This 79-nucleotide RNA from Striga asiatica belongs to the Rfam family "Small nucleolar RNA Z102/R77". The base pairs follow the family's consensus structure, which was predicted with PFOLD. A search with the family's covariance model found it, with a score of 43 bits. Taxonomically the source falls in Striga (Eukaryota, Streptophyta, Tracheophyta, Buchnereae). On this family, see Barneche et al., J Mol Biol 2001: "Identification of 66 box C/D snoRNAs in Arabidopsis thaliana: extensive gene duplications generated multiple isoforms predicting new ribosomal RNA 2'-O-methylation sites". It is annotated as a C/D-box small nucleolar RNA.
Nucleotides: 079
Stems, first nucleotide, its partner, number of pairs: 003077003030050001033048004
Number, partner (000 for none) and nucleotide at each position: 001000g002000a003077a004076u005075g006000a007000u008000a009000u010000g011000a012000g013000g014000a015000g016000g017000a018000g019000a020000a021000a022000a023000a024000c025000u026000u027000g028000u029000u030050g031000a032000u033048u034047g035046c036045c037000a038000g039000u040000a041000u042000g043000a044000u045036g046035g047034c048033a049000a050030u051000g052000a053000c054000c055000u056000u057000g058000u059000a060000u061000u062000a063000g064000c065000u066000c067000u068000a069000g070000c071000u072000g073000a074000u075005c076004a077003u078000g079000u